[Rfam]
RNA sequence: GUCAGGCACGGUGCUCAAUCGUGUAGCGUUUGAGCGACGCUUUACUGACUUCAAGGAUGAAGGACGCGUCGCCGCCACCCUAGAGGCGGCAUCCCCCGCGUGACGCCCUCUGCAGGCACCGUCGUGACCGGAUUCCUUGACUCACUUUGUGUGCGCGUUGAUUGCGCACGGCCACCUUCCGCUCAGACCGGCGCGGAGGUGUAGCGAUAGGACAGCAGCGUUUUCACCAGGAAGGUGAUCUGGGUGGCCGAGCGCGCAUCCACGCGCAUGACCGGGAUGCGGAAGCCUUCGACCACCAGCGCCUCGCGGAAC
Numbered sequence: 001g002u003c004a005g006g007c008a009c010g011g012u013g014c015u016c017a018a019u020c021g022u023g024u025a026g027c028g029u030u031u032g033a034g035c036g037a038c039g040c041u042u043u044a045c046u047g048a049c050u051u052c053a054a055g056g057a058u059g060a061a062g063g064a065c066g067c068g069u070c071g072c073c074g075c076c077a078c079c080c081u082a083g084a085g086g087c088g089g090c091a092u093c094c095c096c097c098g099c100g101u102g103a104c105g106c107c108c109u110c111u112g113c114a115g116g117c118a119c120c121g122u123c124g125u126g127a128c129c130g131g132a133u134u135c136c137u138u139g140a141c142u143c144a145c146u147u148u149g150u151g152u153g154c155g156c157g158u159u160g161a162u163u164g165c166g167c168a169c170g171g172c173c174a175c176c177u178u179c180c181g182c183u184c185a186g187a188c189c190g191g192c193g194c195g196g197a198g199g200u201g202u203a204g205c206g207a208u209a210g211g212a213c214a215g216c217a218g219c220g221u222u223u224u225c226a227c228c229a230g231g232a233a234g235g236u237g238a239u240c241u242g243g244g245u246g247g248c249c250g251a252g253c254g255c256g257c258a259u260c261c262a263c264g265c266g267c268a269u270g271a272c273c274g275g276g277a278u279g280c281g282g283a284a285g286c287c288u289u290c291g292a293c294c295a296c297c298a299g300c301g302c303c304u305c306g307c308g309g310a311a312c
Base pairs, nucleotide, nucleotide: 001049002048003047004046005043006042009039010038012036013035014034016032017031020028021027022026052139053138054137055136056135057134062129063128065126066125067124068123071090072089073088074087075086076085098117099116101114102113103111153208164172165171176199177196178195180193181192182191183190218307219306220305224238225237226236227235228234239301241299243297244296245295246294247293249291250290251289252286253285255281256280257279258278259277260276265274266273
RNA: Xanthomonas sRNA asX4/Xoo4